[Rfam]
RNA sequence: AAGGGCGCCGCCGAAAACCCGUAUAAAAGAGUAGGCA
Numbered sequence: 001a002a003g004g005g006c007g008c009c010g011c012c013g014a015a016a017a018c019c020c021g022u023a024u025a026a027a028a029g030a031g032u033a034g035g036c037a
Stems, first nucleotide, its partner, number of pairs: 003020003010036003
DUF805b RNA: a 37-nucleotide RNA from Niastella populi. The family's RNA type in Rfam is cis-regulatory element. It scores 36 bits against the family's covariance model. Clan: DUF805 clan.